[Rfam]
RNA sequence: UAAUUACAAAUGAAAAAGAAGCCAUGCUGUAACAUGGCUUCCCAAUAGAGCCGUUUAAGACGGUGACUGUUAACUAACUUUAAAUA
Numbered sequence: 001u002a003a004u005u006a007c008a009a010a011u012g013a014a015a016a017a018g019a020a021g022c023c024a025u026g027c028u029g030u031a032a033c034a035u036g037g038c039u040u041c042c043c044a045a046u047a048g049a050g051c052c053g054u055u056u057a058a059g060a061c062g063g064u065g066a067c068u069g070u071u072a073a074c075u076a077a078c079u080u081u082a083a084a085u086a
Stems, first nucleotide, its partner, number of pairs: 023036004050064006

Shown here is an 86-nucleotide sequence from Pediococcus argentinicus, a member of the family "RNA anti-toxin A". The family's RNA type in Rfam is antitoxin RNA. Gene Ontology terms of the family: mRNA binding and negative regulation of translation. Pairs were carried over by alignment from the consensus structure, which was predicted with RNAalifold.